RNA sequence: GCCCUGUGGUUCCUGGACACUGCUCUGUGCAUGCAGUGCUUCAGUUGAUAGAAAAGGGCCAAAAGUGAAGCUGUGAUUUACGCAUGGAGUCUGUGAUGUGUGAGCAGCUUCCAUAGCCCGGUCACAGGUACAGGC
Numbered sequence: 001g002c003c004c005u006g007u008g009g010u011u012c013c014u015g016g017a018c019a020c021u022g023c024u025c026u027g028u029g030c031a032u033g034c035a036g037u038g039c040u041u042c043a044g045u046u047g048a049u050a051g052a053a054a055a056g057g058g059c060c061a062a063a064a065g066u067g068a069a070g071c072u073g074u075g076a077u078u079u080a081c082g083c084a085u086g087g088a089g090u091c092u093g094u095g096a097u098g099u100g101u102g103a104g105c106a107g108c109u110u111c112c113a114u115a116g117c118c119c120g121g122u123c124a125c126a127g128g129u130a131c132a133g134g135c
Stems, first nucleotide, its partner, number of pairs: 001059004007050002010047001013044005019037005071127001073125006082117002084114004089109001091107004
RNA: Small nucleolar RNA SNORA84